Shown here is a 113-nucleotide sequence from Laceyella tengchongensis, a member of the family "SAM riboswitch aptamer (S box leader)".

RNA sequence: CUCUUAUCAAGAGCGGCGGAGGGACUGGCCCGAUGAAGCCCGGCAACCUCGGUGAGAUGGUAUCACCGGAAGGUGCCAAAUCCUGCAGAACAAAAAGUUCUGAGAGAUAAGAG
Numbered sequence: 001c002u003c004u005u006a007u008c009a010a011g012a013g014c015g016g017c018g019g020a021g022g023g024a025c026u027g028g029c030c031c032g033a034u035g036a037a038g039c040c041c042g043g044c045a046a047c048c049u050c051g052g053u054g055a056g057a058u059g060g061u062a063u064c065a066c067c068g069g070a071a072g073g074u075g076c077c078a079a080a081u082c083c084u085g086c087a088g089a090a091c092a093a094a095a096a097g098u099u100c101u102g103a104g105a106g107a108u109a110a111g112a113g
Stems, first nucleotide, its partner, number of pairs: 001113008013041001015040003021031003025085001027083002042077004047073002049069007081105001086102006